[Rfam]
RNA sequence: GUUCUCUGUGAUGUUAUGACCAUGCUAAUUCAGAUCAUUAUGUGAUCGAAUACUUCUUCAUCUUAUCUUCUGAGGGAACA
Numbered sequence: 001g002u003u004c005u006c007u008g009u010g011a012u013g014u015u016a017u018g019a020c021c022a023u024g025c026u027a028a029u030u031c032a033g034a035u036c037a038u039u040a041u042g043u044g045a046u047c048g049a050a051u052a053c054u055u056c057u058u059c060a061u062c063u064u065a066u067c068u069u070c071u072g073a074g075g076g077a078a079c080a
Base pairs, nucleotide, nucleotide: 001079002078003077004076005075006074007073
RNA: Small nucleolar RNA snoR53Y